[Rfam]
About this RNA:
The record is a 154-nucleotide RNA sequence from Carpinus fangiana, which matches "Small nucleolar RNA snoR138" in Rfam. Rfam 15.1 lists 308 matches to the family in 168 species. By type it is an H/ACA-box small nucleolar RNA. For this family Rfam cites "Mining small RNA sequencing data: a new approach to identify small nucleolar RNAs in Arabidopsis" (Chen and Wu, Nucleic Acids Res, 2009).

RNA sequence: GUUGCCUUCAGAAUAACUAAACGGUGAUUAAAAAUACGAUGCCGUUUGGUUCAGACAGGGGCGCACAGUAAGUAAUCCGAAUCCGUUUUGAUGGAAAGGAACGCCUUUCUUAAGAAGCUCUUCAUGUUCCUUUCCCAUACAGCUUCGGAUAUAU
Numbered sequence: 001g002u003u004g005c006c007u008u009c010a011g012a013a014u015a016a017c018u019a020a021a022c023g024g025u026g027a028u029u030a031a032a033a034a035u036a037c038g039a040u041g042c043c044g045u046u047u048g049g050u051u052c053a054g055a056c057a058g059g060g061g062c063g064c065a066c067a068g069u070a071a072g073u074a075a076u077c078c079g080a081a082u083c084c085g086u087u088u089u090g091a092u093g094g095a096a097a098g099g100a101a102c103g104c105c106u107u108u109c110u111u112a113a114g115a116a117g118c119u120c121u122u123c124a125u126g127u128u129c130c131u132u133u134c135c136c137a138u139a140c141a142g143c144u145u146c147g148g149a150u151a152u153a154u
Base pairs, nucleotide, nucleotide: 003063004062005061006060007059009058015051016050017049018048019047020046021045022044024042025041026040078147079146080145081144083142085118086117087116094109095108096107097106098105099104125141126140127139
The base pairs follow the family's consensus structure, which was predicted with mfold. Taxonomically the source falls in Carpinus (Eukaryota, Viridiplantae, Embryophyta, Fagales).